[Rfam]
Nucleotides: 405
Base pairs, nucleotide, nucleotide: 001401002400003399004398005397006396007395008394011391013348014347015346016345017344018343019342021048022047023046024045025044026043027042028041029040030039031038053389054388055387057386058385059384060383061382062256063255064254065253071285072284076251077250078249080248081247082096083095084094085093086092097111098109099108100107101106112246113245117244118243119240120239121238133187134186135183136182137181140178141177142176195213196212197211198210199209200208215235216233217232218231219230220229221228222227260305261304262303263297264296266294267293268292276290277289278288279287280286312331313330314329315328316327317326318325319324
Number, partner (000 for none) and nucleotide at each position: 001401a002400g003399a004398g005397u006396u007395g008394g009000c010000g011391a012000a013348g014347g015346c016345g017344g018343u019342u020000g021048c022047g023046g024045g025044u026043c027042a028041g029040u030039g031038g032000c033000g034000a035000u036000c037000g038031c039030c040029a041028c042027u043026g044025g045024c046023c047022u048021g049000a050000g051000g052000a053389a054388a055387g056000u057386c058385c059384g060383g061382g062256c063255u064254c065253c066000c067000g068000a069000a070000a071285g072284a073000c074000c075000a076251a077250a078249c079000u080248u081247g082096c083095u084094g085093g086092g087000u088000a089000a090000c091000g092086c093085c094084c095083a096082g097111u098109g099108c100107g101106g102000g103000u104000g105000a106101c107100c108099g109098u110000g111097a112246g113245g114000a115000g116000a117244g118243u119240g120239c121238c122000a123000c124000a125000g126000a127000a128000a129000c130000a131000u132000a133187c134186c135183g136182c137181c138000g139000a140178u141177g142176g143000a144000g145000g146000g147000u148000u149000u150000g151000g152000g153000g154000g155000c156000g157000a158000u159000c160000g161000c162000c163000c164000c165000u166000g167000a168000g169000c170000c171000a172000g173000a174000u175000c176142u177141c178140a179000c180000a181137g182136g183135u184000a185000a186134g187133g188000g189000u190000g191000c192000a193000a194000g195213g196212g197211u198210g199209c200208g201000g202000u203000a204000a205000g206000a207000g208200c209199g210198c211197a212196c213195c214000a215235g216233c217232a218231g219230c220229g221228u222227c223000g224000a225000g226000a227222g228221g229220c230219g231218c232217u233216g234000g235215c236000u237000c238121g239120g240119u241000a242000a243118a244117c245113c246112c247081c248080g249078g250077u251076u252000g253065g254064g255063a256062g257000c258000a259000a260305g261304g262303u263297a264296g265000a266294g267293g268292a269000g270000c271000g272000a273000c274000g275000g276290u277289u278288g279287g280286u281000c282000u283000u284072u285071u286280a287279c288278c289277g290276g291000u292268u293267c294266c295000g296264c297263u298000u299000a300000g301000a302000c303262a304261c305260c306000g307000c308000u309000a310000g311000a312331g313330g314329c315328g316327u317326c318325u319324g320000g321000u322000a323000a324319c325318a326317g327316g328315c329314g330313u331312c332000c333000c334000a335000g336000a337000u338000a339000g340000a341000u342019a343018a344017c345016u346015g347014c348013c349000u350000u351000c352000u353000g354000g355000g356000c357000u358000g359000u360000g361000c362000u363000u364000g365000c366000a367000g368000c369000c370000u371000g372000g373000a374000a375000a376000a377000c378000a379000g380000a381000a382061c383060c384059c385058g386057g387055c388054u389053u390000a391011u392000g393000c394008c395007c396006a397005a398004c399003u400002c401001u402000g403000c404000u405000u

A member of the RNA family "Bacterial RNase P class A" from Geitlerinema sp. PCC 7407, 405 nucleotides long. The source organism's lineage runs through Bacteria, Bacillati, Cyanobacteriota, Cyanophyceae and Geitlerinema. Gene Ontology terms of the family: tRNA processing, dimeric ribonuclease P complex and ribonuclease P activity. Ribonuclease P (RNase P) is a ubiquitous endoribonuclease, found in archaea, bacteria and eukarya as well as chloroplasts and mitochondria.